Cyano-1 RNA: a 67-nucleotide RNA sequence from Prochlorococcus marinus. Rfam 15.1 lists 283 matches to the family in 194 species. The family's consensus secondary structure is taken from published work. It is one of the family's seed sequences. The family's RNA type in Rfam is small RNA.

[Rfam]
RNA sequence: UUGUGUGUAGGAGAGUUUUUACUGAAACAGUGGAAACAAGGAAACACUUGAUUCGGUAAAACCAGAA
Numbered sequence: 001u002u003g004u005g006u007g008u009a010g011g012a013g014a015g016u017u018u019u020u021a022c023u024g025a026a027a028c029a030g031u032g033g034a035a036a037c038a039a040g041g042a043a044a045c046a047c048u049u050g051a052u053u054c055g056g057u058a059a060a061a062c063c064a065g066a067a
Stems, first nucleotide, its partner, number of pairs: 015062005022056002028050002030047003